Shown here is a 134-nucleotide RNA from Zostera marina, a member of the family "Small nucleolar RNA snoR74". Gene Ontology terms of the family: RNA processing and nucleolus. The match comes from Rfam's covariance-model search (69 bits). For this family Rfam cites "Experimental RNomics: identification of 140 candidates for small non-messenger RNAs in the plant Arabidopsis thaliana" (Marker et al., Curr Biol, 2002).
[Rfam]
RNA sequence: AAAAAAGCAUGUAUCUGUCGUCAUUUUAUAAGGAUAGAUCUCUCGUAUGCUUUAGGUAGAUCGCUGGUAUUGUUUUUGGGUGAUUCUGUUUUCAAUUGAUAUGAUAAUAUGACUCAAUACACAAUGCCACAUUC
Dot-bracket structure: ....(((...(..((((((.............))))))..)........))).............((((((((.......(((.((........................)).)))....))))))))......